[Rfam]
RNA sequence: ACAAAGCAUCUUUGUAAGUUGCUCUGCAUAAGAGCAUCUGCUAAAUGACAGAAA
Numbered sequence: 001a002c003a004a005a006g007c008a009u010c011u012u013u014g015u016a017a018g019u020u021g022c023u024c025u026g027c028a029u030a031a032g033a034g035c036a037u038c039u040g041c042u043a044a045a046u047g048a049c050a051g052a053a054a
Stems, first nucleotide, its partner, number of pairs: 013043001014041003020036006
The record is a 54-nucleotide sequence from Electrophorus electricus, which matches "UnaL2 LINE 3' element" in Rfam. For this family Rfam cites "Solution structure of an RNA stem-loop derived from the 3' conserved region of eel LINE UnaL2" (Baba et al., RNA, 2004). The match comes from Rfam's covariance-model search (60 bits). The family's RNA type in Rfam is cis-regulatory element.